[Rfam]
The record is a 116-nucleotide RNA sequence from Microcebus murinus, which matches "Y RNA" in Rfam. By type it is a non-coding RNA gene.
RNA sequence: GGCUGGCCAGAAGGUAGUGAGUUAUUUCAAUUGAUCAUCCACAAUCAGUUACAGAUGGUUACAAAUCCAGCUUCUUGUUCUACUCCUUUCUCACUAUUGCACUUGACUAGUCUUAA
Numbered sequence: 001g002g003c004u005g006g007c008c009a010g011a012a013g014g015u016a017g018u019g020a021g022u023u024a025u026u027u028c029a030a031u032u033g034a035u036c037a038u039c040c041a042c043a044a045u046c047a048g049u050u051a052c053a054g055a056u057g058g059u060u061a062c063a064a065a066u067c068c069a070g071c072u073u074c075u076u077g078u079u080c081u082a083c084u085c086c087u088u089u090c091u092c093a094c095u096a097u098u099g100c101a102c103u104u105g106a107c108u109a110g111u112c113u114u115a116a
Stems, first nucleotide, its partner, number of pairs: 001112006008105001010104002014100002016095006043079003047075002